About this RNA: A member of the RNA family "mir-219 microRNA precursor family" from Branchiostoma floridae, 72 nucleotides long.
RNA sequence: CCAGUGCUGAUUGUCCAAACGCAAUUCUUGUUGACCUUUGAACCAAGAACUGCGCUGGACAUCAGCAAUUGA
Numbered sequence: 001c002c003a004g005u006g007c008u009g010a011u012u013g014u015c016c017a018a019a020c021g022c023a024a025u026u027c028u029u030g031u032u033g034a035c036c037u038u039u040g041a042a043c044c045a046a047g048a049a050c051u052g053c054g055c056u057g058g059a060c061a062u063c064a065g066c067a068a069u070u071g072a
Stems, first nucleotide, its partner, number of pairs: 002071004008064004013060005020054004025049006

A reference for the family is Lim et al. (2003), "Vertebrate microRNA genes", Science. Rfam's curators put it in the seed alignment.